[Rfam]
RNA: Burkholderia RNA 7 (anti-hemB)
RNA sequence: UCUCCCGCUUCUCCUCCCUGAGCGGGUAGCCUUAACUGAUGAGGCUGUUCACCCCGAUUUUAUCCCCUUUAAUCGGGGUUUUUUUU
Numbered sequence: 001u002c003u004c005c006c007g008c009u010u011c012u013c014c015u016c017c018c019u020g021a022g023c024g025g026g027u028a029g030c031c032u033u034a035a036c037u038g039a040u041g042a043g044g045c046u047g048u049u050c051a052c053c054c055c056g057a058u059u060u061u062a063u064c065c066c067c068u069u070u071a072a073u074c075g076g077g078g079u080u081u082u083u084u085u086u
Stems, first nucleotide, its partner, number of pairs: 004026006028046007052078008